The record is a 173-nucleotide RNA from Streptomyces chattanoogensis, which matches "Streptomyces RNA 1601" in Rfam.
[Rfam]
RNA sequence: GACGACCGGCCGGACACCCAGGUGACCGGCCCACAAGUGGAGGCUCCGAUCUCCCACCCGAACCGACCUCAGGUCGGCGGGUCAAUGGUCCGGCUGCGCCCCGCGGAGAUUUCGCGGCGGUGCUCCUGGUUCAGUUCCGGAGCCCCGCCUGUGUCCCGUCCGGGGCGUUUUGC
Numbered sequence: 001g002a003c004g005a006c007c008g009g010c011c012g013g014a015c016a017c018c019c020a021g022g023u024g025a026c027c028g029g030c031c032c033a034c035a036a037g038u039g040g041a042g043g044c045u046c047c048g049a050u051c052u053c054c055c056a057c058c059c060g061a062a063c064c065g066a067c068c069u070c071a072g073g074u075c076g077g078c079g080g081g082u083c084a085a086u087g088g089u090c091c092g093g094c095u096g097c098g099c100c101c102c103g104c105g106g107a108g109a110u111u112u113c114g115c116g117g118c119g120g121u122g123c124u125c126c127u128g129g130u131u132c133a134g135u136u137c138c139g140g141a142g143c144c145c146c147g148c149c150u151g152u153g154u155c156c157c158g159u160c161c162g163g164g165g166c167g168u169u170u171u172g173c
Base pairs, nucleotide, nucleotide: 004090005089006088007087008086012027013026028083029082030081031080032079034060037057038056039055040054041052042051063077064076065075066074067073068072098166099165100164101163102162103161104158105157106156113153114152115151116149117148118147119146120145122143123142124141125140126139
Rfam classes the family as a small RNA.